[Rfam]
RNA sequence: CACGUCAGUGCGCUUUGCUAACGUGCACACAAAUUGCGCUUUCAUGGACGCGCUUUGUUGCCACGUCAGCAAAGCGCGCUUACGUGG
Numbered sequence: 001c002a003c004g005u006c007a008g009u010g011c012g013c014u015u016u017g018c019u020a021a022c023g024u025g026c027a028c029a030c031a032a033a034u035u036g037c038g039c040u041u042u043c044a045u046g047g048a049c050g051c052g053c054u055u056u057g058u059u060g061c062c063a064c065g066u067c068a069g070c071a072a073a074g075c076g077c078g079c080u081u082a083c084g085u086g087g
Stems, first nucleotide, its partner, number of pairs: 001086005007080013021066001023064003029058005035052004040047002
Dot-bracket structure: (((((.(((((((((((((.(.(((...(((((.((((.((....)).)))).)))))...))).).))))))))))))).))))).
The record is an 87-nucleotide RNA from Gossypium laxum, which matches "MIR7486 microRNA precursor family" in Rfam. The base pairs follow the family's consensus structure, which was predicted with RNAalifold. Lineage of the source: Eukaryota > Viridiplantae > Streptophyta > Malvoideae > Gossypium.